BsrC: an 87-nucleotide RNA sequence from Terribacillus saccharophilus. NCBI's taxonomy places the organism under Bacteria, Bacillati, Bacillota, Caryophanales, Terribacillus. It scores 73 bits against the family's covariance model. The family's RNA type in Rfam is small RNA. The literature on the family includes a 2008 paper in Gene by Saito et al., "Novel small RNA-encoding genes in the intergenic regions of Bacillus subtilis".
RNA sequence: UUACACUUAAACGAUGCAAUCCCUACCUCUAUUGCAUCCUCACGGCUCCUAGGCCGCUCCAGUCUGAAUAAGUACUUCUAAUUAAAA
Numbered sequence: 001u002u003a004c005a006c007u008u009a010a011a012c013g014a015u016g017c018a019a020u021c022c023c024u025a026c027c028u029c030u031a032u033u034g035c036a037u038c039c040u041c042a043c044g045g046c047u048c049c050u051a052g053g054c055c056g057c058u059c060c061a062g063u064c065u066g067a068a069u070a071a072g073u074a075c076u077u078c079u080a081a082u083u084a085a086a087a
Base pairs, nucleotide, nucleotide: 035066036065039062040061043056044055045054046053047052
Annotation
Rfam's curators write: The 301 nucleotide sequence from Kouji Nakamura has been trimmed to a highly conserved ~85 nucleotide long core to form this family.